[Rfam]
RNA sequence: UGGACAGAUUAUUGUAUUCGGUUGUAUUCACGGCAUGUAAUAGGGGAUUACAUUAUUUUUAAACGGAAAGUGAUUGAAUUAACAUAAUAGACUCCU
Numbered sequence: 001u002g003g004a005c006a007g008a009u010u011a012u013u014g015u016a017u018u019c020g021g022u023u024g025u026a027u028u029c030a031c032g033g034c035a036u037g038u039a040a041u042a043g044g045g046g047a048u049u050a051c052a053u054u055a056u057u058u059u060u061a062a063a064c065g066g067a068a069a070g071u072g073a074u075u076g077a078a079u080u081a082a083c084a085u086a087a088u089a090g091a092c093u094c095c096u
Stems, first nucleotide, its partner, number of pairs: 002095003009090007017082002020080002023077001026075001028073004034065001036063001037059001039057005

This 96-nucleotide sequence from Nicotiana tabacum belongs to the Rfam family "MIR6152 microRNA precursor family".
The base pairs follow the family's consensus structure, which was predicted with RNAalifold.
A search with the family's covariance model found it, with a score of 85 bits.